Shown here is a 373-nucleotide RNA sequence from Euhalothece natronophila, a member of the family "Bacterial RNase P class A".
RNA sequence: AGAGUUGGCGAGGUAGUUGCAGAUUCCUAUCUAAGGAAUUUGAGGAAAGUCCGGGCUUCCAAAGACCAGACUGCUGGGUAACGCCCAGUGCGGGUGACCGUGAGGAAAGUGCCACAGAAACAUACCGCCAAGAAGGUUCACACUUCUUUGGUAAGGGUGCAAAGGUGCGGUAAGAGCGCACCAGCAGUAUCGAGAGGUACUGGCUCGGUAAACCCCAGUCGGAAGCAAGGUCGAGGGAAACUAUGGUUGGUCUUUAACCGGUUUCCGUUUUGGGAGUACCGCUUGAGGCUUCUGGUAACAGGAGUCCCAGAUAGAUAACUACCCUCAGGCACGUUGCUUGAGAACAGAACCCGGCUUAUGUCCAACUCUCUUU
Numbered sequence: 001a002g003a004g005u006u007g008g009c010g011a012g013g014u015a016g017u018u019g020c021a022g023a024u025u026c027c028u029a030u031c032u033a034a035g036g037a038a039u040u041u042g043a044g045g046a047a048a049g050u051c052c053g054g055g056c057u058u059c060c061a062a063a064g065a066c067c068a069g070a071c072u073g074c075u076g077g078g079u080a081a082c083g084c085c086c087a088g089u090g091c092g093g094g095u096g097a098c099c100g101u102g103a104g105g106a107a108a109g110u111g112c113c114a115c116a117g118a119a120a121c122a123u124a125c126c127g128c129c130a131a132g133a134a135g136g137u138u139c140a141c142a143c144u145u146c147u148u149u150g151g152u153a154a155g156g157g158u159g160c161a162a163a164g165g166u167g168c169g170g171u172a173a174g175a176g177c178g179c180a181c182c183a184g185c186a187g188u189a190u191c192g193a194g195a196g197g198u199a200c201u202g203g204c205u206c207g208g209u210a211a212a213c214c215c216c217a218g219u220c221g222g223a224a225g226c227a228a229g230g231u232c233g234a235g236g237g238a239a240a241c242u243a244u245g246g247u248u249g250g251u252c253u254u255u256a257a258c259c260g261g262u263u264u265c266c267g268u269u270u271u272g273g274g275a276g277u278a279c280c281g282c283u284u285g286a287g288g289c290u291u292c293u294g295g296u297a298a299c300a301g302g303a304g305u306c307c308c309a310g311a312u313a314g315a316u317a318a319c320u321a322c323c324c325u326c327a328g329g330c331a332c333g334u335u336g337c338u339u340g341a342g343a344a345c346a347g348a349a350c351c352c353g354g355c356u357u358a359u360g361u362c363c364a365a366c367u368c369u370c371u372u373u
Base pairs, nucleotide, nucleotide: 001369002368003367004366005365006364007363008362011359012323013322014321015320016319017318018317020042021041022040023039024038025037026036027035028034047357048356049355051354052353053352054351055350056225057224058223059222064254065253069220070219071218072217073216074088075087076086077085078084089103090101091100092099093098104215105214109213110212111209112208113207125156126155127152128151129150130149131148132146133145134144135143164182165181166180167179168178169177184204185202186201187200188199189198190197191196229280230279231278236266237265238264239263240262241261245259246258247257248256249255287306288305289304290303291302292301293300294299
Background
Pairs were carried over by alignment from the consensus structure, which is taken from published work. Rfam's curators write: Ribonuclease P (RNase P) is a ubiquitous endoribonuclease, found in archaea, bacteria and eukarya as well as chloroplasts and mitochondria.